[Rfam]
RNA sequence: CCACGUCCCGACGCAAUCCCCCCCGGCGCCGGGACCUUCCCUGAGCCGGGCUGCGGCGCCCCUCCCCCCGGGCGCCGUAGCCCGGCUCUUUU
Numbered sequence: 001c002c003a004c005g006u007c008c009c010g011a012c013g014c015a016a017u018c019c020c021c022c023c024c025g026g027c028g029c030c031g032g033g034a035c036c037u038u039c040c041c042u043g044a045g046c047c048g049g050g051c052u053g054c055g056g057c058g059c060c061c062c063u064c065c066c067c068c069c070g071g072g073c074g075c076c077g078u079a080g081c082c083c084g085g086c087u088c089u090u091u092u
Stems, first nucleotide, its partner, number of pairs: 005035006012028003043088010054077008
Streptomyces RNA 3202: a 92-nucleotide sequence from Streptomyces sp. CdTB01. From the family's description: Identified by deep sequencing of transcriptome at the end of exponential growth phase. It is annotated as a small RNA. The source organism's lineage runs through Bacteria, Bacillati, Kitasatosporales, Streptomycetaceae and Streptomyces. Rfam's curators put it in the seed alignment. For this family Rfam cites "Deep sequencing-based identification of small non-coding RNAs in Streptomyces coelicolor" (Vockenhuber et al., RNA Biol, 2011).